[Rfam]
RNA sequence: UGCAUAUCCAAAGCGCCAGGACACACGAUUUGUGUGUUGACGAGGAGGAGGUUUAUCGAUUUUUCGGCGGAUGCCUCCCGGCCGAACCACGGCCGUAAGAUGCCCACAACACCGGUAAGCGAUUACCGCGACAAAAGGGUCUCAUGGUUUGUC
Numbered sequence: 001u002g003c004a005u006a007u008c009c010a011a012a013g014c015g016c017c018a019g020g021a022c023a024c025a026c027g028a029u030u031u032g033u034g035u036g037u038u039g040a041c042g043a044g045g046a047g048g049a050g051g052u053u054u055a056u057c058g059a060u061u062u063u064u065c066g067g068c069g070g071a072u073g074c075c076u077c078c079c080g081g082c083c084g085a086a087c088c089a090c091g092g093c094c095g096u097a098a099g100a101u102g103c104c105c106a107c108a109a110c111a112c113c114g115g116u117a118a119g120c121g122a123u124u125a126c127c128g129c130g131a132c133a134a135a136a137g138g139g140u141c142u143c144a145u146g147g148u149u150u151g152u153c
Stems, first nucleotide, its partner, number of pairs: 020038008047078005056067004079095006099143002102140004113128006